Annotation:
The record is an 81-nucleotide RNA sequence from Chanos chanos, which matches "mir-31 microRNA precursor family" in Rfam. On this family, see Aravin et al., Dev Cell 2003: "The small RNA profile during Drosophila melanogaster development". Clan: mir-31 microRNA precursor family. The organism belongs to Chanos, within Eukaryota. A search with the family's covariance model found it, with a score of 66 bits. The family has 75 seed sequences and 1,181 matches in Rfam 15.1.
RNA sequence: GAAAGAAAAGAUGGCAAGAUGUUGGCAUAGCAGCUGUGAUUAGGGCCCUGCUAUGCCUCCAUACUGCCAUCUUUUAUCUCC
Number, nucleotide and partner (000 for none) at each position: 001g000002a000003a000004a000005g000006a075007a074008a073009a072010g071011a070012u069013g068014g067015c066016a065017a000018g000019a062020u061021g060022u000023u000024g057025g056026c055027a054028u053029a052030g051031c050032a000033g000034c000035u000036g000037u000038g000039a000040u000041u000042a000043g000044g000045g000046c000047c000048c000049u000050g031051c030052u029053a028054u027055g026056c025057c024058u000059c000060c021061a020062u019063a000064c000065u016066g015067c014068c013069a012070u011071c010072u009073u008074u007075u006076a000077u000078c000079u000080c000081c000